[Rfam]
RNA sequence: GUGGGGGCGGGGCGCUCCCUCAGCCCAGAUUUCGAGAGGGCACAGGCCAGGCUGAGGGACCCCACUGGUGCAUG
Dot-bracket structure: ...(.(.(((.(.(.((((((((((..(.((..(......)..)).)..)))))))))).).).))).).)...
Numbered sequence: 001g002u003g004g005g006g007g008c009g010g011g012g013c014g015c016u017c018c019c020u021c022a023g024c025c026c027a028g029a030u031u032u033c034g035a036g037a038g039g040g041c042a043c044a045g046g047c048c049a050g051g052c053u054g055a056g057g058g059a060c061c062c063c064a065c066u067g068g069u070g071c072a073u074g
Stems, first nucleotide, its partner, number of pairs: 004071001006069001008067003012063001014061001016059010028047001030045002034041001
The record is a 74-nucleotide RNA sequence from Myotis brandtii, which matches "mir-9193 microRNA precursor family" in Rfam. NCBI's taxonomy places the organism under Eukaryota, Vertebrata, Teleostomi, Tetrapoda, Myotis. Its family is annotated with miRNA-mediated post-transcriptional gene silencing and RISC complex in the Gene Ontology.